[Rfam]
RNA sequence: GCCCCGCCAGCCCAGUGUUCAGACUACCUGUUCGGGGUUCUGAUGUGUACAGUAGUCUGUACAUUGGUUAGGCUGGGCU
Number, nucleotide and partner (000 for none) at each position: 001g000002c000003c000004c000005c000006g000007c000008c000009a000010g000011c000012c067013c066014a065015g064016u063017g062018u061019u000020c059021a058022g057023a056024c055025u054026a053027c000028c052029u051030g050031u049032u000033c047034g046035g000036g000037g000038u000039u000040c000041u000042g000043a000044u000045g000046u034047g033048u000049a031050c030051a029052g028053u026054a025055g024056u023057c022058u021059g020060u000061a018062c017063a016064u015065u014066g013067g012068u000069u000070a000071g000072g000073c000074u000075g000076g000077g000078c000079u000
Record summary: The family of this 79-nucleotide RNA from Chrysochloris asiatica is "mir-199 microRNA precursor family". Rfam's curators write: This family consists of the microRNA (miRNA) precursor mir-199 which appears to be specific to humans. Animal miRNAs are transcribed as ~70nt precursors and subsequently processed by the Dicer enzyme to give a ~22nt product. In this case the mature sequence comes from the 3' arm of the precursor. The extents of the hairpin precursors are not generally known and are estimated based on hairpin prediction. The products are thought to have regulatory roles through complementarity to mRNA. The involvement of Dicer in miRNA processing suggests a relationship with the phenomenon of RNA interference. miRNAs are numbered based on the sequence of the mature RNA. Rfam 15.1 lists 1,828 matches to the family in 648 species. For this family Rfam cites "miRNPs: a novel class of ribonucleoproteins containing numerous microRNAs" (Mourelatos et al., Genes Dev, 2002). Gene Ontology terms of the family: RISC complex and miRNA-mediated post-transcriptional gene silencing.